Background:
The family of this 160-nucleotide RNA from Streptomyces avermitilis is "c-di-AMP riboswitch aptamer (ydaO/yuaA leader)". Taxonomically the source falls in Streptomyces avermitilis (Bacteria, Actinomycetes, Streptomycetaceae, Streptomyces).
RNA sequence: GGACAGUCAUCGCCGAGUCCCCGUAUGGCGCGAGCCAGGGGAGCCGGGGACCCAUCGCAGUCCCUGGGGUGAAUCGGGCACCCUCUCCUGAGGGAGCCCGUAGGAGACCUUCCUGCUCCGAACCCGUCAGCUAACCCGGUAGGCGAGAAGGAAGGAAAGG
Numbered sequence: 001g002g003a004c005a006g007u008c009a010u011c012g013c014c015g016a017g018u019c020c021c022c023g024u025a026u027g028g029c030g031c032g033a034g035c036c037a038g039g040g041g042a043g044c045c046g047g048g049g050a051c052c053c054a055u056c057g058c059a060g061u062c063c064c065u066g067g068g069g070u071g072a073a074u075c076g077g078g079c080a081c082c083c084u085c086u087c088c089u090g091a092g093g094g095a096g097c098c099c100g101u102a103g104g105a106g107a108c109c110u111u112c113c114u115g116c117u118c119c120g121a122a123c124c125c126g127u128c129a130g131c132u133a134a135c136c137c138g139g140u141a142g143g144c145g146a147g148a149a150g151g152a153a154g155g156a157a158a159g160g
Stems, first nucleotide, its partner, number of pairs: 011145004018042005043140006053066002067125003075100004103119004